The record is a 169-nucleotide sequence from Halanaerobium sp. DL-01, which matches "glmS glucosamine-6-phosphate activated ribozyme aptamer" in Rfam.
For this family Rfam cites "Evidence for preorganization of the glmS ribozyme ligand binding pocket" (Hampel and Tinsley, Biochemistry, 2006).
The family's consensus secondary structure is taken from published work.
RNA sequence: AAAAUAAAAAAAGCGCCAGGGCUUGGAUGGACGCAGAAAAUCCAAGUUGACGAGGGAGAGAGUUAUCGAAAAUUCGGCGGAUGCUCUCAGGUGCUGGCCGAGCACCUAAUAGUUUGUCUUUAAAAACUGAUAAGUGAUUAUCAGUACAGAGGAGAUAAAUGUCGGCUGA
Numbered sequence: 001a002a003a004a005u006a007a008a009a010a011a012a013g014c015g016c017c018a019g020g021g022c023u024u025g026g027a028u029g030g031a032c033g034c035a036g037a038a039a040a041u042c043c044a045a046g047u048u049g050a051c052g053a054g055g056g057a058g059a060g061a062g063u064u065a066u067c068g069a070a071a072a073u074u075c076g077g078c079g080g081a082u083g084c085u086c087u088c089a090g091g092u093g094c095u096g097g098c099c100g101a102g103c104a105c106c107u108a109a110u111a112g113u114u115u116g117u118c119u120u121u122a123a124a125a126a127c128u129g130a131u132a133a134g135u136g137a138u139u140a141u142c143a144g145u146a147c148a149g150a151g152g153a154g155a156u157a158a159a160u161g162u163c164g165g166c167u168g169a
Stems, first nucleotide, its partner, number of pairs: 020048008057087004066077004089107005113159007127144007